[Rfam]
RNA sequence: AUCACCAGGGAUCUUGUUAAAAUGCAGAUUCUAAUUCAGUGGGACUUCCUGAGUCCUGAGAAUUCUGUAUUUCUAACAAGCUCUCAAGUGAUGCUAA
Numbered sequence: 001a002u003c004a005c006c007a008g009g010g011a012u013c014u015u016g017u018u019a020a021a022a023u024g025c026a027g028a029u030u031c032u033a034a035u036u037c038a039g040u041g042g043g044a045c046u047u048c049c050u051g052a053g054u055c056c057u058g059a060g061a062a063u064u065c066u067g068u069a070u071u072u073c074u075a076a077c078a079a080g081c082u083c084u085c086a087a088g089u090g091a092u093g094c095u096a097a
Stems, first nucleotide, its partner, number of pairs: 003090003008084003013080007020072003024068005030061003
Rfam assigns this 97-nucleotide sequence from Sciurus carolinensis to the family "mir-544 microRNA precursor family". The literature on the family includes a 2010 paper in Genes Dev by Chiang et al., "Mammalian microRNAs: experimental evaluation of novel and previously annotated genes". Pairs were carried over by alignment from the consensus structure, which was predicted with RNAalifold.